[Rfam]
RNA: Selenocysteine transfer RNA
Organism: Sulfurimicrobium lacus
RNA sequence: GGAAGGGAAUCGUUCCCCGGUGGGACGGCCUGACUUCAAAUCAGGUUAAGCGCGCCAGCGCGCUUGGGUGGGUUCGACUCCCACUCCUUUCC
Numbered sequence: 001g002g003a004a005g006g007g008a009a010u011c012g013u014u015c016c017c018c019g020g021u022g023g024g025a026c027g028g029c030c031u032g033a034c035u036u037c038a039a040a041u042c043a044g045g046u047u048a049a050g051c052g053c054g055c056c057a058g059c060g061c062g063c064u065u066g067g068g069u070g071g072g073u074u075c076g077a078c079u080c081c082c083a084c085u086c087c088u089u090u091c092c
Stems, first nucleotide, its partner, number of pairs: 001092008011027003015024003028046006048065005069083004